RNA sequence: UAGCCAGGGAGCCUCUUGUGAUGAUCCUUGUGUCGCUGAAUGGCUGGUUUGAUGAACCAACCUCGCCCUCUAAGAAGUUGACUGAAGAGGCUUAACCAGCUA
Numbered sequence: 001u002a003g004c005c006a007g008g009g010a011g012c013c014u015c016u017u018g019u020g021a022u023g024a025u026c027c028u029u030g031u032g033u034c035g036c037u038g039a040a041u042g043g044c045u046g047g048u049u050u051g052a053u054g055a056a057c058c059a060a061c062c063u064c065g066c067c068c069u070c071u072a073a074g075a076a077g078u079u080g081a082c083u084g085a086a087g088a089g090g091c092u093u094a095a096c097c098a099g100c101u102a
Stems, first nucleotide, its partner, number of pairs: 007097002009093007

Annotation:
The record is a 102-nucleotide sequence from Podarcis muralis, which matches "Small nucleolar RNA SNORD125" in Rfam. Its family is annotated with nucleolus and RNA processing in the Gene Ontology. The base pairs follow the family's consensus structure, which was predicted with WAR. Clan: SNORD61 clan.